A member of the RNA family "Small nucleolar RNA snoR74" from Hibiscus syriacus, 128 nucleotides long. NCBI's taxonomy places the organism under Eukaryota, Tracheophyta, Malvales, Malvoideae, Hibiscus. It is annotated as an H/ACA-box small nucleolar RNA. The base pairs follow the family's consensus structure, which was predicted with WAR. Gene Ontology terms of the family: nucleolus and RNA processing.
RNA sequence: AAAAAAGAACAUGUUUCCUUUUGUGAACUAGAUUCUCUUAAACUUCAGCAAAAUUACCCGUGCAUUGUUCUUGGGUGAACCUCUGUAUUUUAUUGGUACCUGAAGGCUCAGUAAAUGAUGCUACAUUU
Number, nucleotide and partner (000 for none) at each position: 001a045002a044003a000004a000005a000006a000007g034008a033009a000010c031011a000012u000013g028014u000015u000016u000017c000018c000019u000020u000021u000022u000023g000024u000025g000026a000027a000028c013029u000030a000031g010032a000033u008034u007035c000036u000037c000038u000039u000040a000041a000042a000043c000044u002045u001046c000047a000048g000049c000050a000051a000052a000053a000054u000055u000056a000057c000058c000059c000060g000061u000062g121063c120064a119065u118066u117067g116068u115069u114070c000071u000072u000073g000074g000075g000076u110077g109078a108079a000080c106081c105082u104083c000084u000085g000086u000087a000088u000089u000090u000091u000092a000093u000094u000095g000096g000097u000098a000099c000100c000101u000102g000103a000104a082105g081106g080107c000108u078109c077110a076111g000112u000113a000114a069115a068116u067117g066118a065119u064120g063121c062122u000123a000124c000125a000126u000127u000128u000